[Rfam]
RNA sequence: GGAACAGGCCUUUCAGGCAUCCUCUCCCAAACUUCCAAAGGCCAGCCUUCGGGCUGGCCAUUUUUUUGCCUUUC
Numbered sequence: 001g002g003a004a005c006a007g008g009c010c011u012u013u014c015a016g017g018c019a020u021c022c023u024c025u026c027c028c029a030a031a032c033u034u035c036c037a038a039a040g041g042c043c044a045g046c047c048u049u050c051g052g053g054c055u056g057g058c059c060a061u062u063u064u065u066u067u068g069c070c071u072u073u074c
Stems, first nucleotide, its partner, number of pairs: 008018004040059008
RNA: Makes More Granules Regulator RNA (mmgR)